RNA sequence: UACGAAGGGCGCACGGUGGAUGCCUUGGCGUCACGGGCCGAUGAAGGACGUGGCAAGACUGCGAUAAGCCUCGGUAUGCUGUCUAGCAAGCUAAACCGAGGAUCUCCGAAUGGGGCAACCCGGCUCGCUUUAUAGCGGGUCACGACCAGCUGAACACAUAGGCUGGAUCGAGGGAACCGGGGGAACUGAAACAUCUAAGUACCCUGAGGAAAAGAAACAAUUCUCUUAGUAGCGGCGAGCGAACGGGGAAUAGCCCAAACCGUCAUCCUUGUGAUGGCGGGGUUGUAGGACCGGCGCACAGGAGCGCCAGUUUGGAUAGCCGAAGGACCUGGAACGGUCCGCCGUAGAGGGUGAGAGUCCCGUAGGCGAAAUUUAGACGGCUCCUGCCGGUAUCCUGAGUACCACGGGACACGAGAAAUCCCGUGGGAAGCUGGGGAGACCACUUUCCAAGGCUAAAUACCUGUGACGACCGAUAGUGAACUAGUACCGUGAGGGAAAGGUGAAAAGCACCCCGGGAGGGGAGUGAAAUAGUACCUGAAACCGUGUGCCUACAAG
Numbered sequence: 001u002a003c004g005a006a007g008g009g010c011g012c013a014c015g016g017u018g019g020a021u022g023c024c025u026u027g028g029c030g031u032c033a034c035g036g037g038c039c040g041a042u043g044a045a046g047g048a049c050g051u052g053g054c055a056a057g058a059c060u061g062c063g064a065u066a067a068g069c070c071u072c073g074g075u076a077u078g079c080u081g082u083c084u085a086g087c088a089a090g091c092u093a094a095a096c097c098g099a100g101g102a103u104c105u106c107c108g109a110a111u112g113g114g115g116c117a118a119c120c121c122g123g124c125u126c127g128c129u130u131u132a133u134a135g136c137g138g139g140u141c142a143c144g145a146c147c148a149g150c151u152g153a154a155c156a157c158a159u160a161g162g163c164u165g166g167a168u169c170g171a172g173g174g175a176a177c178c179g180g181g182g183g184a185a186c187u188g189a190a191a192c193a194u195c196u197a198a199g200u201a202c203c204c205u206g207a208g209g210a211a212a213a214g215a216a217a218c219a220a221u222u223c224u225c226u227u228a229g230u231a232g233c234g235g236c237g238a239g240c241g242a243a244c245g246g247g248g249a250a251u252a253g254c255c256c257a258a259a260c261c262g263u264c265a266u267c268c269u270u271g272u273g274a275u276g277g278c279g280g281g282g283u284u285g286u287a288g289g290a291c292c293g294g295c296g297c298a299c300a301g302g303a304g305c306g307c308c309a310g311u312u313u314g315g316a317u318a319g320c321c322g323a324a325g326g327a328c329c330u331g332g333a334a335c336g337g338u339c340c341g342c343c344g345u346a347g348a349g350g351g352u353g354a355g356a357g358u359c360c361c362g363u364a365g366g367c368g369a370a371a372u373u374u375a376g377a378c379g380g381c382u383c384c385u386g387c388c389g390g391u392a393u394c395c396u397g398a399g400u401a402c403c404a405c406g407g408g409a410c411a412c413g414a415g416a417a418a419u420c421c422c423g424u425g426g427g428a429a430g431c432u433g434g435g436g437a438g439a440c441c442a443c444u445u446u447c448c449a450a451g452g453c454u455a456a457a458u459a460c461c462u463g464u465g466a467c468g469a470c471c472g473a474u475a476g477u478g479a480a481c482u483a484g485u486a487c488c489g490u491g492a493g494g495g496a497a498a499g500g501u502g503a504a505a506a507g508c509a510c511c512c513c514g515g516g517a518g519g520g521g522a523g524u525g526a527a528a529u530a531g532u533a534c535c536u537g538a539a540a541c542c543g544u545g546u547g548c549c550u551a552c553a554a555g
Stems, first nucleotide, its partner, number of pairs: 007550010022535001023500002027471002029468009038173002046107003049063003069101007078091003112121003122141007143170003146166006177208001178206005188195002221457001222249005232240002252454004260280007287396003291390005304383001306381003310378008319367003325340005343347001349361003402426008433448005487494002510521004
About this RNA: Rfam assigns this 555-nucleotide part of an RNA from uncultured Chloroflexi bacterium HF0200_09I09 to the family "Bacterial large subunit ribosomal RNA". Pairs were carried over by alignment from the consensus structure, which is taken from published work.